[Rfam]
RNA sequence: GUGCCUGUGGGAUGAACAGGUCCCAACAUUUACUCCAUUUUUCACUUUAUCAGCUGAUGUUCAUAAUUUUUAGCUGAUCAUUAAGAAUGGGAAAUUU
Numbered sequence: 001g002u003g004c005c006u007g008u009g010g011g012a013u014g015a016a017c018a019g020g021u022c023c024c025a026a027c028a029u030u031u032a033c034u035c036c037a038u039u040u041u042u043c044a045c046u047u048u049a050u051c052a053g054c055u056g057a058u059g060u061u062c063a064u065a066a067u068u069u070u071u072a073g074c075u076g077a078u079c080a081u082u083a084a085g086a087a088u089g090g091g092a093a094a095u096u097u
Base pairs, nucleotide, nucleotide: 034091035090036089037088038087039086049078050077051076052075053074054073055072056071
Dot-bracket structure: .................................((((((.........((((((((..............)))))))).......))))))......